RNA sequence: CCAGUACCAAAGCUACGAGGCUCAUUCCACACAGGACGCCUCGUUCGUCCAGAUUCGUGAGCGGGCUAAGGUCUGAGUAUUAUAUUCCCCCACGAUCGGCUCUAGCUGGGCCCAGUCAUAACUGGCAUGAGGCAGCGUACCAGAAACACGGUCUUCUCUAUCGUUCGGUCAUGAACGCCCAAAGAUCCUUCAGAGGGGAGGGAUAUAGAAAAGAACCUUGAAAUAUGCGCCGGGGAUUGGGUGUUCGAUCAUUGCCAUCGGCCUAUCGAACAUCCUUUAGUGCACUUCGUAGCACGCAAUCUGACUUUUCAGUUGCGGAACUCGAUUCAGACUACUCUGGAACUGG
Numbered sequence: 001c002c003a004g005u006a007c008c009a010a011a012g013c014u015a016c017g018a019g020g021c022u023c024a025u026u027c028c029a030c031a032c033a034g035g036a037c038g039c040c041u042c043g044u045u046c047g048u049c050c051a052g053a054u055u056c057g058u059g060a061g062c063g064g065g066c067u068a069a070g071g072u073c074u075g076a077g078u079a080u081u082a083u084a085u086u087c088c089c090c091c092a093c094g095a096u097c098g099g100c101u102c103u104a105g106c107u108g109g110g111c112c113c114a115g116u117c118a119u120a121a122c123u124g125g126c127a128u129g130a131g132g133c134a135g136c137g138u139a140c141c142a143g144a145a146a147c148a149c150g151g152u153c154u155u156c157u158c159u160a161u162c163g164u165u166c167g168g169u170c171a172u173g174a175a176c177g178c179c180c181a182a183a184g185a186u187c188c189u190u191c192a193g194a195g196g197g198g199a200g201g202g203a204u205a206u207a208g209a210a211a212a213g214a215a216c217c218u219u220g221a222a223a224u225a226u227g228c229g230c231c232g233g234g235g236a237u238u239g240g241g242u243g244u245u246c247g248a249u250c251a252u253u254g255c256c257a258u259c260g261g262c263c264u265a266u267c268g269a270a271c272a273u274c275c276u277u278u279a280g281u282g283c284a285c286u287u288c289g290u291a292g293c294a295c296g297c298a299a300u301c302u303g304a305c306u307u308u309u310c311a312g313u314u315g316c317g318g319a320a321c322u323c324g325a326u327u328c329a330g331a332c333u334a335c336u337c338u339g340g341a342a343c344u345g346g
Stems, first nucleotide, its partner, number of pairs: 001346004007340003012293007020062005034050005073330005088235004098112005115126004131231003135228003150217003295317006
Nuclear RNase P: a 346-nucleotide RNA sequence from Armillaria luteobubalina.
Rfam classes the family as a ribozyme.
Lineage of the source: Eukaryota > Opisthokonta > Dikarya > Basidiomycota > Armillaria.
Rfam describes the family as follows. Ribonuclease P (RNase P) is a ubiquitous endoribonuclease, found in archaea, bacteria and eukarya as well as chloroplasts and mitochondria.